The record is a 78-nucleotide RNA sequence from Danionella cerebrum, which matches "mir-19 microRNA precursor family" in Rfam. The source organism's lineage runs through Eukaryota, Metazoa, Bilateria, Otophysi and Danionella. A reference for the family is Mourelatos et al. (2002), "miRNPs: a novel class of ribonucleoproteins containing numerous microRNAs", Genes Dev. The base pairs follow the family's consensus structure, which was predicted with RNAalifold. The family is grouped with related families in Rfam's "mir-19 clan".
RNA sequence: UUGUGGGUGAGUUUUGCAGGAUUGCAUUCAGCUUUGUUCCAAAAUGCUGUGCAAACCCAUGCAAAGCUCGCUGUGCCA
Numbered sequence: 001u002u003g004u005g006g007g008u009g010a011g012u013u014u015u016g017c018a019g020g021a022u023u024g025c026a027u028u029c030a031g032c033u034u035u036g037u038u039c040c041a042a043a044a045u046g047c048u049g050u051g052c053a054a055a056c057c058c059a060u061g062c063a064a065a066g067c068u069c070g071c072u073g074u075g076c077c078a
Stems, first nucleotide, its partner, number of pairs: 003076002006072013019058002022054006030048003